[Rfam]
RNA: Bacterial RNase P class B
RNA sequence: AAUUUUGAGCGGUCGCGGUUAACUUAUGUUAGCUGAGGAAAGUCCACGCACGCACGAACUGCGAAGUUUGUAGUGUUCGUAUUCAGCCUAAUAAGCUGGAGAAUUUUUGUUACGGCGGAAAAAAUGCUAAGUCUUUUGAUAUGCACUACUAUCCUGAAAAGUGCCACAGUGACGAAGCAGAAUUGAAAACGAUUCUGGUGGAACGAGGUAAACCCUGCGAGCGUGCAACCCAAAUUUGGUAGGGGCGUCUCAACCUAAGAAAAUGAACUAAAGGUUGGAUUACUAUUUUAUAGUAAAGAUAGAUGGCUGCUAAAAGUAAUUUUUGCCAAAAAUUACCGGAACAAAACGUGGCUUAUAGAG
Numbered sequence: 001a002a003u004u005u006u007g008a009g010c011g012g013u014c015g016c017g018g019u020u021a022a023c024u025u026a027u028g029u030u031a032g033c034u035g036a037g038g039a040a041a042g043u044c045c046a047c048g049c050a051c052g053c054a055c056g057a058a059c060u061g062c063g064a065a066g067u068u069u070g071u072a073g074u075g076u077u078c079g080u081a082u083u084c085a086g087c088c089u090a091a092u093a094a095g096c097u098g099g100a101g102a103a104u105u106u107u108u109g110u111u112a113c114g115g116c117g118g119a120a121a122a123a124a125u126g127c128u129a130a131g132u133c134u135u136u137u138g139a140u141a142u143g144c145a146c147u148a149c150u151a152u153c154c155u156g157a158a159a160a161g162u163g164c165c166a167c168a169g170u171g172a173c174g175a176a177g178c179a180g181a182a183u184u185g186a187a188a189a190c191g192a193u194u195c196u197g198g199u200g201g202a203a204c205g206a207g208g209u210a211a212a213c214c215c216u217g218c219g220a221g222c223g224u225g226c227a228a229c230c231c232a233a234a235u236u237u238g239g240u241a242g243g244g245g246c247g248u249c250u251c252a253a254c255c256u257a258a259g260a261a262a263a264u265g266a267a268c269u270a271a272a273g274g275u276u277g278g279a280u281u282a283c284u285a286u287u288u289u290a291u292a293g294u295a296a297a298g299a300u301a302g303a304u305g306g307c308u309g310c311u312a313a314a315a316g317u318a319a320u321u322u323u324u325g326c327c328a329a330a331a332a333u334u335a336c337c338g339g340a341a342c343a344a345a346a347c348g349u350g351g352c353u354u355a356u357a358g359a360g
Base pairs, nucleotide, nucleotide: 004360005359006358007356008311009310010309011308012307013306014305016035017034018033019032020031021030040354041353042352044351045350046349047348048347049225050224051223052222053221054071055070056069057068058067059066077220078219079218080217081216082100083099084098085097086096087095101113102111103110104109114215115214117154118153119152125145126144127143131140132139133138161213162212163209164208165207178197179196180195181194182193183192184191185190229244230243231242248279249278251277252276253275254274255273280296281295282294283293284292285291316336317335318334319333320332321331322330323329